[Rfam]
RNA sequence: UGAUGAGGUAGAGGUGCAGUGAGUCACAAGUAAUUUUAGUGAGCUAUUAAGAUUAGCUAUGAUCUAAAAUGAAAAGGACUAUUGCCGAAGUAUUAGAGAAAUCUUAAUUUCUAAUACUGGGUUAAUAUCUAAUAGGUAUUGGACUGCUUUUGAAGACAAAUGUCUUCGGGAGUGCGCUAUCUCAUAA
Numbered sequence: 001u002g003a004u005g006a007g008g009u010a011g012a013g014g015u016g017c018a019g020u021g022a023g024u025c026a027c028a029a030g031u032a033a034u035u036u037u038a039g040u041g042a043g044c045u046a047u048u049a050a051g052a053u054u055a056g057c058u059a060u061g062a063u064c065u066a067a068a069a070u071g072a073a074a075a076g077g078a079c080u081a082u083u084g085c086c087g088a089a090g091u092a093u094u095a096g097a098g099a100a101a102u103c104u105u106a107a108u109u110u111c112u113a114a115u116a117c118u119g120g121g122u123u124a125a126u127a128u129c130u131a132a133u134a135g136g137u138a139u140u141g142g143a144c145u146g147c148u149u150u151u152g153a154a155g156a157c158a159a160a161u162g163u164c165u166u167c168g169g170g171a172g173u174g175c176g177c178u179a180u181c182u183c184a185u186a187a
Stems, first nucleotide, its partner, number of pairs: 006182006016085006023079003033070007089118011119145002122142008147172009

The record is a 187-nucleotide RNA from Selenihalanaerobacter shriftii, which matches "Lysine riboswitch aptamer" in Rfam. A search with the family's covariance model found it, with a score of 103 bits. About the family: Riboswitches are metabolite binding domains within certain messenger RNAs that serve as precision sensors for their corresponding targets.